[Rfam]
RNA sequence: GGUUUGCAGGCAGUGUCAUUAGCUGAUUGUCCCCACAGUGCCACAAUCACUAACGUCACUGCCAUCAAAAC
Numbered sequence: 001g002g003u004u005u006g007c008a009g010g011c012a013g014u015g016u017c018a019u020u021a022g023c024u025g026a027u028u029g030u031c032c033c034c035a036c037a038g039u040g041c042c043a044c045a046a047u048c049a050c051u052a053a054c055g056u057c058a059c060u061g062c063c064a065u066c067a068a069a070a071c
Base pairs, nucleotide, nucleotide: 003069004068005067006066009063010062012060013059014058015057017055019053020052021051022050024049025048026047027046028045029044030043